[Rfam]
The record is a 372-nucleotide RNA sequence from Roseburia hominis, which matches "Bacterial RNase P class A" in Rfam.
RNA sequence: UAAGUAGAACAAAUGAUCGCGGCCCAGCAUUGCUGGGGUGAGGAAAGUCCGGGCUUCACAGGGCAGGAUGCCGGAUAACGUCCGGUGGAGGCGACUCCAAGGAUAGUGCAACAGAAAUAUACCGCCGGUUCCGGUAAUGCCGGAAUACGGUAAGGGUGGAAGGGCAGUGUAAGAGACUACCGCCGCGCUGGUAACAGAGCGGGCAUAUGUAAACCCCAUCCGAAGCAAGACCGAACAAAAGCGUUGACGCGGCCCGCCAGCUUUAGGUAGGUUGCUUGAGGUGGCUGGCAACAGUCAUCCUAGAUAGAUGAUCAUUCCGACUGUGGCUUGCCACGGUUUAGACAUAACCCGGCUUAUCGUUCUGCUUAUCAU
Dot-bracket structure: ((((((((((((((((((.((.((((((...)))))).))....[[[.[[[[[((((...[[[[.((((((((((.....)))))(((((....)))).)((...(((((...........((((((.((((((.....))))))..))))..)).......((.(((.......))).))(((((.(((....))).)))).)...)))..)))))))))))))...((((.....(((((......((.]]]]))..))))).....))))......((((((((....))))))))..........)))))))...............................]]]]]]]].).))))))))))....

Rfam classes the family as a ribozyme. The organism belongs to Roseburia hominis, within Bacteria.